Group II catalytic intron D1-D4-3: a 170-nucleotide RNA from Adhaeribacter pallidiroseus. The match comes from Rfam's covariance-model search (110 bits). Taxonomically the source falls in Adhaeribacter (Bacteria, Pseudomonadati, Bacteroidota, Cytophagia).

[Rfam]
RNA sequence: UUUGGGGUGACCCAUGCAGGGAAGGAAGCGGAACUGCAAACUUCUGAACGGACGAACAGAAACGGUAUAAGAGGCCGGGAGUCGUGGGUAAGCAAGCACCUCUUGGUGAAGCCCUGGGCCCACAAACGAUUCUUGGUAGAUGCCGCCGGUUUAGAAGGAAGGAUAAGGGU
Numbered sequence: 001u002u003u004g005g006g007g008u009g010a011c012c013c014a015u016g017c018a019g020g021g022a023a024g025g026a027a028g029c030g031g032a033a034c035u036g037c038a039a040a041c042u043u044c045u046g047a048a049c050g051g052a053c054g055a056a057c058a059g060a061a062a063c064g065g066u067a068u069a070a071g072a073g074g075c076c077g078g079g080a081g082u083c084g085u086g087g088g089u090a091a092g093c094a095a096g097c098a099c100c101u102c103u104u105g106g107u108g109a110a111g112c113c114c115u116g117g118g119c120c121c122a123c124a125a126a127c128g129a130u131u132c133u134u135g136g137u138a139g140a141u142g143c144c145g146c147c148g149g150u151u152u153a154g155a156a157g158g159a160a161g162g163a164u165a166a167g168g169g170u
Stems, first nucleotide, its partner, number of pairs: 001016001003014004028170002037162001041157006047150001049148003063145006074137003078133007086114004092107002095104001